Shown here is a 204-nucleotide sequence from Vescimonas fastidiosa, a member of the family "Group II catalytic intron D1-D4-5".
Group II introns are found in rRNA, tRNA and mRNA of organelles in fungi, plants and protists, and also in mRNA in bacteria.
The pairing is the family consensus, mapped onto this sequence.
[Rfam]
RNA sequence: GAGAACUGAUAUUUCGAUGGAUGAAAUGAGGGGGUAACGCCCCGAAGCGUCCACACUAAUACUCCGACUGGCAUAGGUGCGCAACCGCCGAUUGUCAGAAGCUCGGUGAAGUCGGCAGAGAGAUGCCGUAGUUUUGGCUGCAAGGCUGAAAUCGAAAGCUGUCCAGAGGUGGAUAGCGCAUCCUAUAUGCCGGGUGUCAGCCGC
Numbered sequence: 001g002a003g004a005a006c007u008g009a010u011a012u013u014u015c016g017a018u019g020g021a022u023g024a025a026a027u028g029a030g031g032g033g034g035u036a037a038c039g040c041c042c043c044g045a046a047g048c049g050u051c052c053a054c055a056c057u058a059a060u061a062c063u064c065c066g067a068c069u070g071g072c073a074u075a076g077g078u079g080c081g082c083a084a085c086c087g088c089c090g091a092u093u094g095u096c097a098g099a100a101g102c103u104c105g106g107u108g109a110a111g112u113c114g115g116c117a118g119a120g121a122g123a124u125g126c127c128g129u130a131g132u133u134u135u136g137g138c139u140g141c142a143a144g145g146c147u148g149a150a151a152u153c154g155a156a157a158g159c160u161g162u163c164c165a166g167a168g169g170u171g172g173a174u175a176g177c178g179c180a181u182c183c184u185a186u187a188u189g190c191c192g193g194g195u196g197u198c199a200g201c202c203g204c
Stems, first nucleotide, its partner, number of pairs: 018053006031043004054196004064106004068098006074091001076089004113192005122182005127154002134150002158177008
A reference for the family is Bonen and Vogel (2001), "The ins and outs of group II introns", Trends Genet.